The record is a 109-nucleotide sequence from Streptomyces boluensis, which matches "Glycine riboswitch aptamer" in Rfam. Taxonomically the source falls in Streptomyces (Bacteria, Actinomycetes, Kitasatosporales, Streptomycetaceae). A search with the family's covariance model found it, with a score of 35 bits.
RNA sequence: GCAGAUCUGAAAAGCGAGCCGCUGUACGGCUCCACCCAAGGUGCAAGCCGGGCUCCCGGCGAACCUCUCAGGUUGUGAACCCCCGGGUUCCGAUGACAGAUGGGGAGGA
Numbered sequence: 001g002c003a004g005a006u007c008u009g010a011a012a013a014g015c016g017a018g019c020c021g022c023u024g025u026a027c028g029g030c031u032c033c034a035c036c037c038a039a040g041g042u043g044c045a046a047g048c049c050g051g052g053c054u055c056c057c058g059g060c061g062a063a064c065c066u067c068u069c070a071g072g073u074u075g076u077g078a079a080c081c082c083c084c085g086g087g088u089u090c091c092g093a094u095g096a097c098a099g100a101u102g103g104g105g106a107g108g109a
Stems, first nucleotide, its partner, number of pairs: 002104001005101005016032004034073003038068001041067001043065001047060004